[Rfam]
MIR5269 microRNA precursor family: an 80-nucleotide sequence from Medicago truncatula.
RNA sequence: UUAGAUGAAAUCUACAUGGAUACCACACUUUAAAAAUGAAUCCCACUUAAAGUGGUGAGACACACAUGAAUUUUAUCUAA
Numbered sequence: 001u002u003a004g005a006u007g008a009a010a011u012c013u014a015c016a017u018g019g020a021u022a023c024c025a026c027a028c029u030u031u032a033a034a035a036a037u038g039a040a041u042c043c044c045a046c047u048u049a050a051a052g053u054g055g056u057g058a059g060a061c062a063c064a065c066a067u068g069a070a071u072u073u074u075a076u077c078u079a080a
Stems, first nucleotide, its partner, number of pairs: 001080011013068002017064002024057002026054007